The record is a 137-nucleotide RNA sequence from Hymenochirus boettgeri, which matches "Small nucleolar RNA SNORA8" in Rfam. A search with the family's covariance model found it, with a score of 46 bits. NCBI's taxonomy places the organism under Eukaryota, Tetrapoda, Amphibia, Batrachia, Hymenochirus.
[Rfam]
RNA sequence: UGCACUGGUAUGGUUCUCUGCACCCCAUGGUGAUUCCUUUGGGGUGUUCAAUAGGCUAGUGCUACAAUAACCCAGUAACGGGCAUGCGUUGGUUGAAGCCUCCGCGUUUCAAACCUGGUUUUUAUGCUGGAAAAGGG
Number, nucleotide and partner (000 for none) at each position: 001u000002g062003c061004a060005c059006u058007g057008g000009u000010a000011u000012g000013g000014u000015u000016c000017u055018c054019u053020g047021c046022a045023c044024c043025c042026c041027a040028u000029g038030g037031u000032g000033a000034u000035u000036c000037c030038u029039u000040u027041g026042g025043g024044g023045u022046g021047u020048u000049c000050a000051a000052u000053a019054g018055g017056c000057u007058a006059g005060u004061g003062c002063u000064a000065c126066a125067a000068u000069a122070a121071c000072c118073c117074a116075g115076u000077a000078a000079c000080g000081g000082g105083c104084a000085u000086g000087c000088g000089u000090u000091g000092g000093u000094u000095g000096a000097a000098g000099c000100c000101u000102c000103c000104g083105c082106g000107u000108u000109u000110c000111a000112a000113a000114c000115c075116u074117g073118g072119u000120u000121u070122u069123u000124a000125u066126g065127c000128u000129g000130g000131a000132a000133a000134a000135g000136g000137g000

Rfam describes the family as follows. ACA8 is a member of the H/ACA class of snoRNA that guide the sites of modification of uridines to pseudouridines.
Its Rfam clan is "SNORA8 clan".